A member of the RNA family "mir-148/mir-152 microRNA precursor family" from Orthonyx spaldingii, 73 nucleotides long. The family has 70 seed sequences and 1,272 matches in Rfam 15.1. On this family, see Chen et al., Genes Dev 2005: "The developmental miRNA profiles of zebrafish as determined by small RNA cloning". Taxonomically the source falls in Orthonyx (Eukaryota, Sauropsida, Dinosauria, Telluraves). The base pairs follow the family's consensus structure, which was predicted with RNAalifold.

[Rfam]
RNA sequence: CCGGGCCGAGGUUCUGUCCUACACUCCGGCUGUGGCUCUGGGCAGUCAGUGCAUCACAGAACUUGGUCCCGGC
Numbered sequence: 001c002c003g004g005g006c007c008g009a010g011g012u013u014c015u016g017u018c019c020u021a022c023a024c025u026c027c028g029g030c031u032g033u034g035g036c037u038c039u040g041g042g043c044a045g046u047c048a049g050u051g052c053a054u055c056a057c058a059g060a061a062c063u064u065g066g067u068c069c070c071g072g073c
Stems, first nucleotide, its partner, number of pairs: 004069002007066001009064008022051004028047004

Its family is annotated with miRNA-mediated post-transcriptional gene silencing and RISC complex in the Gene Ontology.